[Rfam]
RNA sequence: GCGUGGGUCGGCCCGCUGUACUGGAUCCAGUGGGCUGGGGGAUUCCGCCACCUCCAUCCCCGCGGGUGGCGGAACGGUCCGGGGGGCGAACUCCGUUCCCCGGACUGCG
Numbered sequence: 001g002c003g004u005g006g007g008u009c010g011g012c013c014c015g016c017u018g019u020a021c022u023g024g025a026u027c028c029a030g031u032g033g034g035c036u037g038g039g040g041g042a043u044u045c046c047g048c049c050a051c052c053u054c055c056a057u058c059c060c061c062g063c064g065g066g067u068g069g070c071g072g073a074a075c076g077g078u079c080c081g082g083g084g085g086g087c088g089a090a091c092u093c094c095g096u097u098c099c100c101c102g103g104a105c106u107g108c109g
Stems, first nucleotide, its partner, number of pairs: 001108002006075001008073001009037010038043001045072009055062001076106013
Dot-bracket structure: ((...(.(((((((((((.........))))))))))(....).(((((((((.(......).)))))))))).)(((((((((((((.....))))))))))))))).